RNA sequence: AGAUUUUAACAACUCCGAGCUUUAAUGCCUUCGUUCAAAAAAUUGUUCAAGGGGUUAAUGCCGUGACUACUUAAGCUUCAUAGCAAAGUAAGUCACCAGGGUUUAAAGAGAAAUUUUUAAACCUCCCACUAUUUGGAAAGGUGUUGACAUGUUACAAGA
Numbered sequence: 001a002g003a004u005u006u007u008a009a010c011a012a013c014u015c016c017g018a019g020c021u022u023u024a025a026u027g028c029c030u031u032c033g034u035u036c037a038a039a040a041a042a043u044u045g046u047u048c049a050a051g052g053g054g055u056u057a058a059u060g061c062c063g064u065g066a067c068u069a070c071u072u073a074a075g076c077u078u079c080a081u082a083g084c085a086a087a088g089u090a091a092g093u094c095a096c097c098a099g100g101g102u103u104u105a106a107a108g109a110g111a112a113a114u115u116u117u118u119a120a121a122c123c124u125c126c127c128a129c130u131a132u133u134u135g136g137a138a139a140g141g142u143g144u145u146g147a148c149a150u151g152u153u154a155c156a157a158g159a
Stems, first nucleotide, its partner, number of pairs: 003153001011145003015141002019061002022058005028052002033048001036045003063096005099124011125136002
Rfam assigns this 159-nucleotide sequence from Pseudoalteromonas denitrificans to the family "Molybdenum/Tungsten riboswitch aptamer (Moco RNA motif)". The match comes from Rfam's covariance-model search (78 bits). Taxonomically the source falls in Pseudoalteromonas denitrificans (Bacteria, Gammaproteobacteria, Alteromonadales, Pseudoalteromonadaceae).